[Rfam]
RNA sequence: UAAAUAUGCGGCGAUGGAGUUCGCCCUUAAGUGCUUAAAGCUAAUGACUCCUACCCUAUU
Numbered sequence: 001u002a003a004a005u006a007u008g009c010g011g012c013g014a015u016g017g018a019g020u021u022c023g024c025c026c027u028u029a030a031g032u033g034c035u036u037a038a039a040g041c042u043a044a045u046g047a048c049u050c051c052u053a054c055c056c057u058a059u060u
Stems, first nucleotide, its partner, number of pairs: 010025004016051006033041002

This 60-nucleotide RNA from Heyndrickxia oleronia belongs to the Rfam family "Fluoride riboswitch aptamer (crcB RNA motif)". A search with the family's covariance model found it, with a score of 52 bits.